Description:
A member of the RNA family "U7 small nuclear RNA" from Carassius auratus, 56 nucleotides long. NCBI's taxonomy places the organism under Eukaryota, Opisthokonta, Bilateria, Deuterostomia, Carassius.
RNA sequence: UAGAAUUUGUCUCUUUUAGUAUUUUUCCAGUAGGUUUUCAUUAAAUGAAAACCCCU
Numbered sequence: 001u002a003g004a005a006u007u008u009g010u011c012u013c014u015u016u017u018a019g020u021a022u023u024u025u026u027c028c029a030g031u032a033g034g035u036u037u038u039c040a041u042u043a044a045a046u047g048a049a050a051a052c053c054c055c056u
Stems, first nucleotide, its partner, number of pairs: 033053008
The family's consensus secondary structure was predicted with PFOLD. It scores 46 bits against the family's covariance model.